Annotation: Ruegeria cis52 sRNA: a 177-nucleotide sequence from Aquibium carbonis. Rfam links the family to the GO term regulation of gene expression. Pairs were carried over by alignment from the consensus structure, which was predicted with RNAfold. It is annotated as a small RNA. The literature on the family includes a 2016 paper in Front Microbiol by Rivers et al., "Experimental Identification of Small Non-Coding RNAs in the Model Marine Bacterium Ruegeria pomeroyi DSS-3".
[Rfam]
RNA sequence: UGCGCAGCGCGUGCUUGACCACCACGGCGCUGAAGCUCAGCCCCUUCAGCCGCGCGGUGCGGAUGUAUUGCUGCGUCAUCACCUCGACCAUCGAGGCGCGCGUCAUGCGGGCGAUGUAGCCGAUGCCGUAGAUGGCCAUGGUCAUCACCGGCAGCGUGAAAUUGUAGAAGGUGAUGC
Dot-bracket structure: ....((..((...((((..((......((........(..((...(.(..((((((..((((.....))))..))......(((((.....)))))))))..).)...))..).......)).)).)).))...))..)).....(((..((.(((......))).....))).)).